[Rfam]
Rfam assigns this 72-nucleotide sequence from Phytophthora pseudosyringae to the family "tRNA". Rfam classes the family as a transfer RNA. Transfer RNA (tRNA) molecules are approximately 80 nucleotides in length. Its family is annotated with triplet codon-amino acid adaptor activity in the Gene Ontology. NCBI's taxonomy places the organism under Eukaryota, Sar, Peronosporales, Peronosporaceae, Phytophthora.
RNA sequence: AACACCGUAGCUCAACAGGCUAGAGCGCGGGGUUUCGGCCCUGAGAUGUCUGUUCAAAUCAGGCCGGUGUUA
Numbered sequence: 001a002a003c004a005c006c007g008u009a010g011c012u013c014a015a016c017a018g019g020c021u022a023g024a025g026c027g028c029g030g031g032g033u034u035u036c037g038g039c040c041c042u043g044a045g046a047u048g049u050c051u052g053u054u055c056a057a058a059u060c061a062g063g064c065c066g067g068u069g070u071u072a
Base pairs, nucleotide, nucleotide: 001071002070003069004068005067006066007065010026011025012024013023028043029042030041031040032039048064049063050062051061052060